RNA sequence: UAGCCUGUGGCGGCUUUAAGUAAGAUUAUAAGACCCCGUUUUCGGGGUUUUUUAUUAUCUGGUCGUCUGAAAUGUCGGCUAAGUUACUGGGCUAUAUGCCCUUUUUUU
Numbered sequence: 001u002a003g004c005c006u007g008u009g010g011c012g013g014c015u016u017u018a019a020g021u022a023a024g025a026u027u028a029u030a031a032g033a034c035c036c037c038g039u040u041u042u043c044g045g046g047g048u049u050u051u052u053u054a055u056u057a058u059c060u061g062g063u064c065g066u067c068u069g070a071a072a073u074g075u076c077g078g079c080u081a082a083g084u085u086a087c088u089g090g091g092c093u094a095u096a097u098g099c100c101c102u103u104u105u106u107u108u
Stems, first nucleotide, its partner, number of pairs: 030051009089101004
Dot-bracket structure: .............................(((((((((....))))))))).....................................((((.....)))).......
About this RNA: A member of the RNA family "Gammaprotebacteria rimP leader" from Motilimonas pumila, 108 nucleotides long. The family's consensus secondary structure is taken from published work. By type it is a cis-regulatory leader. On this family, see Naville and Gautheret, Genome Biol 2010: "Premature terminator analysis sheds light on a hidden world of bacterial transcriptional attenuation".